[Rfam]
RNA sequence: AUAAAAUUUGUAUAAGAUGUUCGUAUAUCCCCGAAGAUAGGGUUUGGGGGUCUCUACAGGGAACCGUAAAUUCCUGGCUACGGAUAGGGUGCUUUGGCAU
Numbered sequence: 001a002u003a004a005a006a007u008u009u010g011u012a013u014a015a016g017a018u019g020u021u022c023g024u025a026u027a028u029c030c031c032c033g034a035a036g037a038u039a040g041g042g043u044u045u046g047g048g049g050g051u052c053u054c055u056a057c058a059g060g061g062a063a064c065c066g067u068a069a070a071u072u073c074c075u076g077g078c079u080a081c082g083g084a085u086a087g088g089g090u091g092c093u094u095u096g097g098c099a100u
Base pairs, nucleotide, nucleotide: 018086019085020084021083022082023081024080025079029049030048031047032046033045034044035043059075060074061073062072063071

Record summary
Rfam assigns this 100-nucleotide RNA from Paenibacillus agri to the family "Purine riboswitch aptamer". Riboswitches are metabolite binding domains within certain messenger RNAs that serve as precision sensors for their corresponding targets. Allosteric rearrangement of mRNA structure is mediated by ligand binding, and this results in modulation of gene expression. A class of riboswitches that selectively recognises guanine and becomes saturated at concentrations as low as 5 nM. In Bacillus subtilis, this mRNA motif is located on at least five separate transcriptional units that together encode 17 genes that are mostly involved in purine transport and purine nucleotide biosynthesis. It has also been shown that some members of this family are specific for adenine instead. Hence this family are termed purine riboswitches. Gene Ontology term of the family: purine nucleobase biosynthetic process.